RNA sequence: UUAGCUAUUUUAGAUAGUUUUGUAUUCAUGCAAAUCAUGGGUACAAACAGCAAAAACCUGUUUUUGUAUCUAUGAUGGCUAGAGCAUUUUGCACGAAACAAACAGCCACGUAGACAUUCCUAAGUGGCGAGUGAAGAAGUGUUUACCUACGACUUUUAUCAAUCCAUUUAGGCUCAAUUGUCUAAAUGGAUUUUUUGUUUUAUCAA
Numbered sequence: 001u002u003a004g005c006u007a008u009u010u011u012a013g014a015u016a017g018u019u020u021u022g023u024a025u026u027c028a029u030g031c032a033a034a035u036c037a038u039g040g041g042u043a044c045a046a047a048c049a050g051c052a053a054a055a056a057c058c059u060g061u062u063u064u065u066g067u068a069u070c071u072a073u074g075a076u077g078g079c080u081a082g083a084g085c086a087u088u089u090u091g092c093a094c095g096a097a098a099c100a101a102a103c104a105g106c107c108a109c110g111u112a113g114a115c116a117u118u119c120c121u122a123a124g125u126g127g128c129g130a131g132u133g134a135a136g137a138a139g140u141g142u143u144u145a146c147c148u149a150c151g152a153c154u155u156u157u158a159u160c161a162a163u164c165c166a167u168u169u170a171g172g173c174u175c176a177a178u179u180g181u182c183u184a185a186a187u188g189g190a191u192u193u194u195u196u197g198u199u200u201u202a203u204c205a206a
Stems, first nucleotide, its partner, number of pairs: 001082007011072006019047011051066005087149001090145002093142003105128005111122003151182003156177002
RNA: Enterococcus sRNA 2410